RNA sequence: AAUCAAGGGCGUAUGGGGAAUGCCUAGGCUCUCAGAGGCGAAGAAGGACGUGAUAAGCUGCGAUAAGCUGCGGGGAGGCGCAAAUAGCCAUUAUAUCCGCAGAUUUCCGAAUGGGGCAACCCUCUUGGUUGAAGACCAAGAAUCCGCAAGGAGGCAAACUCAGGGAACUGAAACAUCUAAGUACCUGAAGGAAGAGAAAACAAUUUAGUGAUUGCGCAAGUAGUGGCGAGCGAACGCGCAAGAGCCCAAACCUAAUUAGUUACGGCUAGUUAGGGGUUAUAGGACUACAGUAGUCGACCAAAAUGAAGCUGAACCGGGUGGGAAACCGGACGAUACAGGGUGAUAGUCCCGUAAGCGUAACUUUUUGGAAGAUGGUAGUAUCCUGAGUAGGGCGGGGUCGGAGAUGCCCCGUUUGAAGUUGCCAGCACCAUCUGGUAAGGCUAAAUACUCCUGAGAGACCGAUAGUGAACCAGUACUGUGAAGGAAAGGUGAAAAGUACUCCGAAUAGGAGGGUGAAAUAGAACCUGAAACCGUACGCCUACAAG
Numbered sequence: 001a002a003u004c005a006a007g008g009g010c011g012u013a014u015g016g017g018g019a020a021u022g023c024c025u026a027g028g029c030u031c032u033c034a035g036a037g038g039c040g041a042a043g044a045a046g047g048a049c050g051u052g053a054u055a056a057g058c059u060g061c062g063a064u065a066a067g068c069u070g071c072g073g074g075g076a077g078g079c080g081c082a083a084a085u086a087g088c089c090a091u092u093a094u095a096u097c098c099g100c101a102g103a104u105u106u107c108c109g110a111a112u113g114g115g116g117c118a119a120c121c122c123u124c125u126u127g128g129u130u131g132a133a134g135a136c137c138a139a140g141a142a143u144c145c146g147c148a149a150g151g152a153g154g155c156a157a158a159c160u161c162a163g164g165g166a167a168c169u170g171a172a173a174c175a176u177c178u179a180a181g182u183a184c185c186u187g188a189a190g191g192a193a194g195a196g197a198a199a200a201c202a203a204u205u206u207a208g209u210g211a212u213u214g215c216g217c218a219a220g221u222a223g224u225g226g227c228g229a230g231c232g233a234a235c236g237c238g239c240a241a242g243a244g245c246c247c248a249a250a251c252c253u254a255a256u257u258a259g260u261u262a263c264g265g266c267u268a269g270u271u272a273g274g275g276g277u278u279a280u281a282g283g284a285c286u287a288c289a290g291u292a293g294u295c296g297a298c299c300a301a302a303a304u305g306a307a308g309c310u311g312a313a314c315c316g317g318g319u320g321g322g323a324a325a326c327c328g329g330a331c332g333a334u335a336c337a338g339g340g341u342g343a344u345a346g347u348c349c350c351g352u353a354a355g356c357g358u359a360a361c362u363u364u365u366u367g368g369a370a371g372a373u374g375g376u377a378g379u380a381u382c383c384u385g386a387g388u389a390g391g392g393c394g395g396g397g398u399c400g401g402a403g404a405u406g407c408c409c410c411g412u413u414u415g416a417a418g419u420u421g422c423c424a425g426c427a428c429c430a431u432c433u434g435g436u437a438a439g440g441c442u443a444a445a446u447a448c449u450c451c452u453g454a455g456a457g458a459c460c461g462a463u464a465g466u467g468a469a470c471c472a473g474u475a476c477u478g479u480g481a482a483g484g485a486a487a488g489g490u491g492a493a494a495a496g497u498a499c500u501c502c503g504a505a506u507a508g509g510a511g512g513g514u515g516a517a518a519u520a521g522a523a524c525c526u527g528a529a530a531c532c533g534u535a536c537g538c539c540u541a542c543a544a545g
Base pairs, nucleotide, nucleotide: 007540008539009538010537011536012535013534014533015532016531022525023489024488027460028459029457030456031455032454033453034452035451036449037448038155039154046108047107048106049062050061051060068102069101070100071099072098073097074096077089078088079087113122114121115120123141124140125139126138127137128136129135143152144151145150159190160188161187162186163185164184170177171176200209201208212445213240214239215238216237217236223231224230243442244441245440246439251274252273253272254271255270256269257268281384282383283382285378286377287376288375294372295371298368299367300366301365302364303363305361308356309355310354314329315328316327317326332336338350339349340348390414391413392412393411394410395409396408397407398406421436422435423434424433425432476483477482499511500510501509502508

Record summary
Bacterial large subunit ribosomal RNA: a 545-nucleotide part of an RNA from Ohtaekwangia koreensis. The family has 102 seed sequences and 51,934 matches in Rfam 15.1. Taxonomically the source falls in Ohtaekwangia (Bacteria, Bacteroidota, Cytophagia, Cytophagales). The base pairs follow the family's consensus structure, which is taken from published work. The match comes from Rfam's covariance-model search (2725 bits).